[Rfam]
RNA: FMN riboswitch aptamer (RFN element)
RNA sequence: GUUUAUCUUCAGGGCAGGGUUAGAUUCCCGACCGGCGGUUACAGCCCGCUACCUAUCGUUUGAUAGUUGAUUUGGUGAAAUUCCAAAGCCGACAGUACAGUCUGGUAUAAAGAAGAUCUCU
Numbered sequence: 001g002u003u004u005a006u007c008u009u010c011a012g013g014g015c016a017g018g019g020u021u022a023g024a025u026u027c028c029c030g031a032c033c034g035g036c037g038g039u040u041a042c043a044g045c046c047c048g049c050u051a052c053c054u055a056u057c058g059u060u061u062g063a064u065a066g067u068u069g070a071u072u073u074g075g076u077g078a079a080a081u082u083c084c085a086a087a088g089c090c091g092a093c094a095g096u097a098c099a100g101u102c103u104g105g106u107a108u109a110a111a112g113a114a115g116a117u118c119u120c121u
Base pairs, nucleotide, nucleotide: 005117006116007115008114009113010112017029018028019027031101032100033091034090035049036048037047038046044089045088053066054065071087072086073085074084075083093104094103095102